[Rfam]
RNA sequence: UUUUACCAUUCGCCGUUUCCAUAAGUGCGGGGGAUUAUCAUCAAGCGGACAAGUCCGCUCCGGGGUGAAUCGCGUUUCUGCGCGUAGGGUUGUAUCCUCAGCCCGAAUCCGACAACUAACCUCGUAGGCCGUCAAAAGGAGAGAU
Numbered sequence: 001u002u003u004u005a006c007c008a009u010u011c012g013c014c015g016u017u018u019c020c021a022u023a024a025g026u027g028c029g030g031g032g033g034a035u036u037a038u039c040a041u042c043a044a045g046c047g048g049a050c051a052a053g054u055c056c057g058c059u060c061c062g063g064g065g066u067g068a069a070u071c072g073c074g075u076u077u078c079u080g081c082g083c084g085u086a087g088g089g090u091u092g093u094a095u096c097c098u099c100a101g102c103c104c105g106a107a108u109c110c111g112a113c114a115a116c117u118a119a120c121c122u123c124g125u126a127g128g129c130c131g132u133c134a135a136a137a138g139g140a141g142a143g144a145u
Stems, first nucleotide, its partner, number of pairs: 012129003019025001027125006063110003071084004087104004
Shown here is a 145-nucleotide RNA sequence from Paenibacillus oceani, a member of the family "c-di-AMP riboswitch aptamer (ydaO/yuaA leader)". This family represents a conserved RNA structure found upstream of the ydaO and yuaA genes in Bacillus subtilis and related genes in other bacteria. The ydaO/yuaA element is thought to act as a genetic 'off' switch for the ydaO and yuaA genes in its native state. Gene Ontology terms of the family: cyclic-di-AMP binding and regulation of gene expression. NCBI's taxonomy places the organism under Bacteria, Bacillati, Bacillota, Caryophanales, Paenibacillus.